[Rfam]
RNA sequence: CAAAAAGACUUUAUUGAGGAUACCGUGUAUGAAACAAAUGCAUUUGUUUCAUACACGGUAUCCUCAAUAAAGUCUUUU
Numbered sequence: 001c002a003a004a005a006a007g008a009c010u011u012u013a014u015u016g017a018g019g020a021u022a023c024c025g026u027g028u029a030u031g032a033a034a035c036a037a038a039u040g041c042a043u044u045u046g047u048u049u050c051a052u053a054c055a056c057g058g059u060a061u062c063c064u065c066a067a068u069a070a071a072g073u074c075u076u077u078u
Base pairs, nucleotide, nucleotide: 006075007074008073009072010071011070013068014067015066016065017064018063019062020061021060022059023058024057025056026055027054028053030051031050032049
Shown here is a 78-nucleotide sequence from Microcaecilia unicolor, a member of the family "MIR397 microRNA precursor family". The base pairs follow the family's consensus structure, which was predicted with WAR. Lineage of the source: Eukaryota > Vertebrata > Tetrapoda > Siphonopidae > Microcaecilia. It scores 56 bits against the family's covariance model.